[Rfam]
RNA sequence: AGCCAGUGAUGAAUAGAUUUUGCCAUAUGAUUGAGUGUUGAUUAUAACCCAACCGUUCCAUUAUUUCUGAGGUU
Numbered sequence: 001a002g003c004c005a006g007u008g009a010u011g012a013a014u015a016g017a018u019u020u021u022g023c024c025a026u027a028u029g030a031u032u033g034a035g036u037g038u039u040g041a042u043u044a045u046a047a048c049c050c051a052a053c054c055g056u057u058c059c060a061u062u063a064u065u066u067c068u069g070a071g072g073u074u
Stems, first nucleotide, its partner, number of pairs: 001074004
A member of the RNA family "Small nucleolar RNA SNORD47" from Cyprinodon variegatus, 74 nucleotides long. Its family is annotated with RNA processing and nucleolus in the Gene Ontology. The family has 20 seed sequences and 755 matches in Rfam 15.1. It is annotated as a C/D-box small nucleolar RNA. Taxonomically the source falls in Cyprinodon (Eukaryota, Teleostomi, Teleostei, Cyprinodontini). The base pairs follow the family's consensus structure, which was predicted with ILM. For this family Rfam cites "RNomics: an experimental approach that identifies 201 candidates for novel, small, non-messenger RNAs in mouse" (Huttenhofer et al., EMBO J, 2001).